Background:
The record is a 490-nucleotide part of an RNA from Nosema sp. 2r, which matches "Microsporidia small subunit ribosomal RNA" in Rfam. For this family Rfam cites "Crystal structure of the ribosome at 5.5 A resolution" (Yusupov et al., Science, 2001). The family has 46 seed sequences and 1,035 matches in Rfam 15.1. The base pairs follow the family's consensus structure, which is taken from published work.

[Rfam]
RNA sequence: UGACGGAAGAAUACCACAAGGAGUGGAUUGUGCGGCUUAAUUUGACUCAACGCGGGGUAAUUUACCAGGUAUAACAUGAUAUAAUAUUUUAUCAUGAUAGUGGUGCAUGGCCGUUUCCAAUGGAUGCUGUGAAGUAAUGAUUAAUUUCAACAAGAUGUGAGACCCUCAUUUAGACAGAUGUAGUGAUACAUAUGAAGGAGAGGAUUAAAACAGGUCCGUUAUGCCCUAAGAUAAUCUGGGUUGCACGCGCAAUACAAUAAUAUUUGAUAUUAUAAGGGAUAAUAUAAUGUAAGAUAUAUUUGAACAUGGAAUUGCUAGUAAAUUUUAUUUAAUAAGUAGAAUUGAAUGAGUCCCUGUUCUUUGUACACACCGCCCGUCGCUAUCUAAGAUGGUAUUAUCUAUGAACAAAUUUAUAAAGUGAAUAGAUAGUACUAGAUCUGAUAUAAGUCGUAACAUGGUUGCUGUUGGAGAACCAUUAGCAGGAUCAUAA
Numbered sequence: 001u002g003a004c005g006g007a008a009g010a011a012u013a014c015c016a017c018a019a020g021g022a023g024u025g026g027a028u029u030g031u032g033c034g035g036c037u038u039a040a041u042u043u044g045a046c047u048c049a050a051c052g053c054g055g056g057g058u059a060a061u062u063u064a065c066c067a068g069g070u071a072u073a074a075c076a077u078g079a080u081a082u083a084a085u086a087u088u089u090u091a092u093c094a095u096g097a098u099a100g101u102g103g104u105g106c107a108u109g110g111c112c113g114u115u116u117c118c119a120a121u122g123g124a125u126g127c128u129g130u131g132a133a134g135u136a137a138u139g140a141u142u143a144a145u146u147u148c149a150a151c152a153a154g155a156u157g158u159g160a161g162a163c164c165c166u167c168a169u170u171u172a173g174a175c176a177g178a179u180g181u182a183g184u185g186a187u188a189c190a191u192a193u194g195a196a197g198g199a200g201a202g203g204a205u206u207a208a209a210a211c212a213g214g215u216c217c218g219u220u221a222u223g224c225c226c227u228a229a230g231a232u233a234a235u236c237u238g239g240g241u242u243g244c245a246c247g248c249g250c251a252a253u254a255c256a257a258u259a260a261u262a263u264u265u266g267a268u269a270u271u272a273u274a275a276g277g278g279a280u281a282a283u284a285u286a287a288u289g290u291a292a293g294a295u296a297u298a299u300u301u302g303a304a305c306a307u308g309g310a311a312u313u314g315c316u317a318g319u320a321a322a323u324u325u326u327a328u329u330u331a332a333u334a335a336g337u338a339g340a341a342u343u344g345a346a347u348g349a350g351u352c353c354c355u356g357u358u359c360u361u362u363g364u365a366c367a368c369a370c371c372g373c374c375c376g377u378c379g380c381u382a383u384c385u386a387a388g389a390u391g392g393u394a395u396u397a398u399c400u401a402u403g404a405a406c407a408a409a410u411u412u413a414u415a416a417a418g419u420g421a422a423u424a425g426a427u428a429g430u431a432c433u434a435g436a437u438c439u440g441a442u443a444u445a446a447g448u449c450g451u452a453a454c455a456u457g458g459u460u461g462c463u464g465u466u467g468g469a470g471a472a473c474c475a476u477u478a479g480c481a482g483g484a485u486c487a488u489a490a
Stems, first nucleotide, its partner, number of pairs: 001367002003364003007361007016351002020315001022313003025255001027253008035244002041056004065239006076095006083089002099227002102225004108221001109219001110215003113211004120158003125153001126135003138149003164203004175194002178191005259271005276305001281300006321343008372454001375450002378447001381443004387437001390434013405419002410415001459482006466475003